[Rfam]
RNA sequence: UGCGGCGCUGGAGAUGGCAUUCUCCAUUAACCGCCUCGAAGCUGAUGAUGCCUGCUUCGCC
Numbered sequence: 001u002g003c004g005g006c007g008c009u010g011g012a013g014a015u016g017g018c019a020u021u022c023u024c025c026a027u028u029a030a031c032c033g034c035c036u037c038g039a040a041g042c043u044g045a046u047g048a049u050g051c052c053u054g055c056u057u058c059g060c061c
Stems, first nucleotide, its partner, number of pairs: 010025004016052006033042002